RNA sequence: AUGUAGUGUAGCAUGCCCGUUUGGUGAAUUACUCUGAUGUAUGAUUAUUUAUUAUUUAAUUGAAUUUGGGAAACGGGGUGUUACACCCA
Number, nucleotide and partner (000 for none) at each position: 001a000002u000003g000004u089005a000006g086007u085008g084009u083010a082011g081012c080013a079014u078015g000016c077017c076018c075019g074020u073021u072022u000023g000024g000025u000026g000027a000028a000029u000030u000031a000032c000033u000034c000035u000036g000037a000038u000039g000040u000041a000042u000043g000044a000045u000046u000047a000048u000049u000050u000051a000052u000053u000054a000055u000056u000057u000058a000059a000060u000061u000062g000063a000064a000065u000066u000067u000068g000069g000070g000071a000072a021073a020074c019075g018076g017077g016078g014079u013080g012081u011082u010083a009084c008085a007086c006087c000088c000089a004
MIR2617 microRNA precursor family: an 89-nucleotide sequence from Medicago truncatula. The base pairs follow the family's consensus structure, which was predicted with RNAalifold. A search with the family's covariance model found it, with a score of 74 bits. Lineage of the source: Eukaryota > Streptophyta > Euphyllophyta > Magnoliopsida > Medicago. Rfam 15.1 lists 1,174 matches to the family in 2 species.